[Rfam]
RNA sequence: AGGGUUUCUGGCCUUCUCUUCUCAGUUCUUCCCAGAGUCAGGAAAAGCUGGGUUGAGAAGGCAAGAAAAAAACAAC
Numbered sequence: 001a002g003g004g005u006u007u008c009u010g011g012c013c014u015u016c017u018c019u020u021c022u023c024a025g026u027u028c029u030u031c032c033c034a035g036a037g038u039c040a041g042g043a044a045a046a047g048c049u050g051g052g053u054u055g056a057g058a059a060g061g062c063a064a065g066a067a068a069a070a071a072a073c074a075a076c
Base pairs, nucleotide, nucleotide: 014059015058016057017056018055021052022051023050024049025048029044030043031042032041